The record is a 120-nucleotide RNA from Leersia perrieri, which matches "Small nucleolar RNA SNORD14" in Rfam. Lineage of the source: Eukaryota > Liliopsida > Poales > Oryzinae > Leersia. Pairs were carried over by alignment from the consensus structure, which was predicted with PFOLD.

[Rfam]
RNA sequence: UGCAAAUGAUGCUAAACCAAGGCUUGUUUCUCAUAAGAUUCGCAGUUGCCGCCUAAUAGCUUUUGCACUGCUAGGCUUGAGAGCUGUCACUGCUUAAUCCUUCCUUGGAUGUCUGAUGCA
Numbered sequence: 001u002g003c004a005a006a007u008g009a010u011g012c013u014a015a016a017c018c019a020a021g022g023c024u025u026g027u028u029u030c031u032c033a034u035a036a037g038a039u040u041c042g043c044a045g046u047u048g049c050c051g052c053c054u055a056a057u058a059g060c061u062u063u064u065g066c067a068c069u070g071c072u073a074g075g076c077u078u079g080a081g082a083g084c085u086g087u088c089a090c091u092g093c094u095u096a097a098u099c100c101u102u103c104c105u106u107g108g109a110u111g112u113c114u115g116a117u118g119c120a
Base pairs, nucleotide, nucleotide: 001120002119003118004117059084060083061082062081063080064079
Rfam links the family to the GO terms RNA processing and nucleolus. It is annotated as a C/D-box small nucleolar RNA. U14 small nucleolar RNA (U14 snoRNA) is required for early cleavages of eukaryotic precursor rRNAs. In yeasts, this molecule possess a stem-loop region (known as the Y-domain) which is essential for function. A similar structure, but with a different consensus sequence, is found in plants, but is absent in vertebrates.